[Rfam]
RNA: Glycine riboswitch aptamer
Organism: Gemmobacter lanyuensis
RNA sequence: UUAACAGGAUCGGGAGAAUCCGGCGGGGGGGCAACCUUCGGAGCCGGUGCCGAAGGAGCAACCGCCCCGGUAAACUCUCAGGCGACAGGACCGUCCUGCACA
Number, nucleotide and partner (000 for none) at each position: 001u000002u000003a000004a000005c098006a097007g096008g095009a094010u000011c093012g092013g091014g000015a000016g000017a000018a000019u000020c047021c046022g045023g044024c000025g000026g000027g000028g000029g000030g000031g000032c000033a000034a000035c000036c000037u000038u000039c000040g000041g000042a000043g000044c023045c022046g021047g020048u000049g083050c082051c081052g079053a078054a000055g000056g077057a076058g075059c000060a000061a000062c070063c069064g000065c000066c000067c000068c000069g063070g062071u000072a000073a000074a000075c058076u057077c056078u053079c052080a000081g051082g050083c049084g000085a000086c000087a000088g000089g000090a000091c013092c012093g011094u009095c008096c007097u006098g005099c000100a000101c000102a000